[Rfam]
RNA: Ribosomal S15 leader
RNA sequence: CGAGUUGACUGUAAAUAUGCGCGGUUGGCUUAAGUUUUAAUUAGCAUAUUGAGGAAAUAACUAUGGCUCUUAAUGCCGAAGAAAAAGCAAAAGUAGUAAGCGAAUAUCAACAGUCUGAA
Numbered sequence: 001c002g003a004g005u006u007g008a009c010u011g012u013a014a015a016u017a018u019g020c021g022c023g024g025u026u027g028g029c030u031u032a033a034g035u036u037u038u039a040a041u042u043a044g045c046a047u048a049u050u051g052a053g054g055a056a057a058u059a060a061c062u063a064u065g066g067c068u069c070u071u072a073a074u075g076c077c078g079a080a081g082a083a084a085a086a087g088c089a090a091a092a093g094u095a096g097u098a099a100g101c102g103a104a105u106a107u108c109a110a111c112a113g114u115c116u117g118a119a
Stems, first nucleotide, its partner, number of pairs: 007026006049073006
Dot-bracket structure: ......((((((........))))))......................((((((.............))))))..............................................